[Rfam]
RNA: MIR2617 microRNA precursor family
Organism: Medicago truncatula
RNA sequence: AUGUAGUGUAGCAUGCCCGUUUGUGAAUUACUGAUGAAUAUUUUAUAUUUAAUUACUUUUGGGUAACGGGGUGUUACAUUUGA
Numbered sequence: 001a002u003g004u005a006g007u008g009u010a011g012c013a014u015g016c017c018c019g020u021u022u023g024u025g026a027a028u029u030a031c032u033g034a035u036g037a038a039u040a041u042u043u044u045a046u047a048u049u050u051a052a053u054u055a056c057u058u059u060u061g062g063g064u065a066a067c068g069g070g071g072u073g074u075u076a077c078a079u080u081u082g083a
Stems, first nucleotide, its partner, number of pairs: 002083001005080010016070006